Shown here is a 47-nucleotide sequence from Enterobacteriaceae bacterium strain FGI 57, a member of the family "Guanidine-II riboswitch aptamer (mini-ykkC)".
Rfam's curators write: Simpler in structure and has fewer highly conserved nucleotide positions than the ykkC-yxkD leader.
The match comes from Rfam's covariance-model search (49 bits).
The base pairs follow the family's consensus structure, which is taken from published work.
[Rfam]
RNA sequence: CUUGCGGGACGACCCGUAAGCGCCUCUUUUCAUCGGGGACGGCCCCA
Numbered sequence: 001c002u003u004g005c006g007g008g009a010c011g012a013c014c015c016g017u018a019a020g021c022g023c024c025u026c027u028u029u030u031c032a033u034c035g036g037g038g039a040c041g042g043c044c045c046c047a
Stems, first nucleotide, its partner, number of pairs: 001020008035046004